RNA: FMN riboswitch aptamer (RFN element)
Organism: Lysinibacillus alkalisoli
RNA sequence: AUUCAUCUUCGGGGCAGGGUGAGAUUCCCGACCGGCGGUAUUUUUGUUGUUAUAUAGCUAAUUACAUAUAACAGUUGUAACAAAUAAGCCCGCGACCCACUUUUUAAGUGGCUGAUUUGGUGAGAUGCCAAAGCCGACAGUAUAGUCUGGAUGGGAGAAGGUGAAG
Numbered sequence: 001a002u003u004c005a006u007c008u009u010c011g012g013g014g015c016a017g018g019g020u021g022a023g024a025u026u027c028c029c030g031a032c033c034g035g036c037g038g039u040a041u042u043u044u045u046g047u048u049g050u051u052a053u054a055u056a057g058c059u060a061a062u063u064a065c066a067u068a069u070a071a072c073a074g075u076u077g078u079a080a081c082a083a084a085u086a087a088g089c090c091c092g093c094g095a096c097c098c099a100c101u102u103u104u105u106a107a108g109u110g111g112c113u114g115a116u117u118u119g120g121u122g123a124g125a126u127g128c129c130a131a132a133g134c135c136g137a138c139a140g141u142a143u144a145g146u147c148u149g150g151a152u153g154g155g156a157g158a159a160g161g162u163g164a165a166g
Stems, first nucleotide, its partner, number of pairs: 003164008017029003031146002033136002035093004097111002116132005138149003